[Rfam]
RNA sequence: UGGAGAAGGGGAGCACGUGCAAAGUCUAAGUGCACGCUUCAUCAGGAUUUUGCACGUGCCCUGCUUCUCCAAC
Numbered sequence: 001u002g003g004a005g006a007a008g009g010g011g012a013g014c015a016c017g018u019g020c021a022a023a024g025u026c027u028a029a030g031u032g033c034a035c036g037c038u039u040c041a042u043c044a045g046g047a048u049u050u051u052g053c054a055c056g057u058g059c060c061c062u063g064c065u066u067c068u069c070c071a072a073c
Base pairs, nucleotide, nucleotide: 001071002070003069004068005067006066007065008064010062011061013059014058015057016056017055018054019053020052021051022050023049024048025047026046027045

Shown here is a 73-nucleotide sequence from Salix brachista, a member of the family "MIR164 microRNA precursor family". The match comes from Rfam's covariance-model search (69 bits).